[Rfam]
RNA sequence: CUCUAAUAUUAAGUCAGAUUAUAUAUUUCAUGGAAUAUAUACAGUAUAGGUAUUAGAUAUUAAAGGAAGUCUAUUCCUUCUUAAAAGCAAUUUUAAGUAAAUAUGAAUUAUAAAAGUAUAUGUAUUAGUAAAUUGAAAAAUUGAAUAUAUGUAUACUUU
Dot-bracket structure: ..(((((((...((.....(((((((((....)))))))))....))..))))))).......................(((((((....)))))))...............(((((((((((((.....((((....))))....)))))))))))))
RNA: RT-14 RNA